[Rfam]
RNA sequence: GAUGAAGCAAGGGAGUGAACGAUGAAGAGGUCAACCGCACGUCAGUUUUAUCAGCAGUACUUUUUAGCGACAAAAGGAGUGUCCUGGCUGGCCCGCCAGUGCGCCGAGCAGCGGCUGAAAAUGCUGGAAGAAUUGAUGCAGUGGGAGGUUACGCAAACGACUUCUGAACGCUGACUUGCCUCGAUCAUGUGUGACUGAGUAUUGGUGCUUAUCACCCGCCAGCAAAAUGUUUUUGCUGGCUUUUUUC
Numbered sequence: 001g002a003u004g005a006a007g008c009a010a011g012g013g014a015g016u017g018a019a020c021g022a023u024g025a026a027g028a029g030g031u032c033a034a035c036c037g038c039a040c041g042u043c044a045g046u047u048u049u050a051u052c053a054g055c056a057g058u059a060c061u062u063u064u065u066a067g068c069g070a071c072a073a074a075a076g077g078a079g080u081g082u083c084c085u086g087g088c089u090g091g092c093c094c095g096c097c098a099g100u101g102c103g104c105c106g107a108g109c110a111g112c113g114g115c116u117g118a119a120a121a122u123g124c125u126g127g128a129a130g131a132a133u134u135g136a137u138g139c140a141g142u143g144g145g146a147g148g149u150u151a152c153g154c155a156a157a158c159g160a161c162u163u164c165u166g167a168a169c170g171c172u173g174a175c176u177u178g179c180c181u182c183g184a185u186c187a188u189g190u191g192u193g194a195c196u197g198a199g200u201a202u203u204g205g206u207g208c209u210u211a212u213c214a215c216c217c218g219c220c221a222g223c224a225a226a227a228u229g230u231u232u233u234u235g236c237u238g239g240c241u242u243u244u245u246u247c
Stems, first nucleotide, its partner, number of pairs: 001186003007179005035144003040138010051128002054124003068090002071087001072085001075082001099116001102113003163174002218240008
This 247-nucleotide sequence from Enterobacter sp. 638 belongs to the Rfam family "SgrS RNA". NCBI's taxonomy places the organism under Bacteria, Pseudomonadota, Gammaproteobacteria, Enterobacteriaceae, Enterobacter. Pairs were carried over by alignment from the consensus structure, which was predicted with RNAalifold. From the family's description: In sugar transport-related sRNA (SgrS) is induced under conditions of glucose phosphate stress in E.coli. This small RNA acts to negatively regulate the translation and stability of the ptsG mRNA, which encodes the major glucose transporter in E. coli. SgrS forms a specific ribonucleoprotein complex with RNAse E and the chaperone Hfq and acts by base pairing with the ptsG mRNA. The crucial base-pairs for action of SgrS are confined to the 6 nt region overlapping the Shine-Dalgarno sequence of the ptsG mRNA.